Plant small nucleolar RNA R71: a 107-nucleotide RNA from Apium graveolens. Rfam classes the family as a C/D-box small nucleolar RNA. Taxonomically the source falls in Apium (Eukaryota, Spermatophyta, Pentapetalae, Apieae). Gene Ontology terms of the family: RNA processing and nucleolus. It scores 56 bits against the family's covariance model.

RNA sequence: AUGCCAUGAUGAGGACACUUUCUAAGCAUCUCUUUGUAGUGAUCCCAAGCCUCACACAAAAAUUCUCCAGAUUGCUGCACAAAUUGAGUAAGAGCAUCCUUGAUUGU
Numbered sequence: 001a002u003g004c005c006a007u008g009a010u011g012a013g014g015a016c017a018c019u020u021u022c023u024a025a026g027c028a029u030c031u032c033u034u035u036g037u038a039g040u041g042a043u044c045c046c047a048a049g050c051c052u053c054a055c056a057c058a059a060a061a062a063u064u065c066u067c068c069a070g071a072u073u074g075c076u077g078c079a080c081a082a083a084u085u086g087a088g089u090a091a092g093a094g095c096a097u098c099c100u101u102g103a104u105u106g107u
Stems, first nucleotide, its partner, number of pairs: 001107001003105001005102002057074002